[Rfam]
RNA sequence: GCUGAUGCUUUAUCAUAGAUUACAGGGAAAGCCUGGGCGGUAGUGGCGCUUAUGAAGCGUUAUUACCGUUUACAUA
Numbered sequence: 001g002c003u004g005a006u007g008c009u010u011u012a013u014c015a016u017a018g019a020u021u022a023c024a025g026g027g028a029a030a031g032c033c034u035g036g037g038c039g040g041u042a043g044u045g046g047c048g049c050u051u052a053u054g055a056a057g058c059g060u061u062a063u064u065a066c067c068g069u070u071u072a073c074a075u076a
Base pairs, nucleotide, nucleotide: 023035024034025033026032036070037069038068039067040066041065042064043063044062045061046060047059048058049057
Dot-bracket structure: ......................((((.....))))((((((((((((((.......))))))))))))))......
A member of the RNA family "COG2827 RNA", 76 nucleotides long. The family's consensus secondary structure is taken from published work.